[Rfam]
A member of the RNA family "Alphaproteobacterial sRNA ar45" from Jiella flava, 145 nucleotides long. Taxonomically the source falls in Jiella (Bacteria, Pseudomonadota, Alphaproteobacteria, Hyphomicrobiales).
RNA sequence: GCCCCAUGUCGCACGUGCCUGUGGGCGUCCCCCGGUCCUCAGAUGCGAGGGUAGCCGGGAAGGUACCUGGACGUAACACACCCAGUCGAUUUCGCGAGCCGCGCGAUUUCGAGGACGCCUUGAAGCAACGACGGUUCGGGCCUUU
Numbered sequence: 001g002c003c004c005c006a007u008g009u010c011g012c013a014c015g016u017g018c019c020u021g022u023g024g025g026c027g028u029c030c031c032c033c034g035g036u037c038c039u040c041a042g043a044u045g046c047g048a049g050g051g052u053a054g055c056c057g058g059g060a061a062g063g064u065a066c067c068u069g070g071a072c073g074u075a076a077c078a079c080a081c082c083c084a085g086u087c088g089a090u091u092u093c094g095c096g097a098g099c100c101g102c103g104c105g106a107u108u109u110c111g112a113g114g115a116c117g118c119c120u121u122g123a124a125g126c127a128a129c130g131a132c133g134g135u136u137c138g139g140g141c142c143u144u145u
Base pairs, nucleotide, nucleotide: 001141002140003139004138008132009131010130011129016127017126018125023120024119025118026117027116028115029114030113031059032058033057034056035055037050038049039048040047067085068084069083070082086112087111088110089109092106093105094104095103096102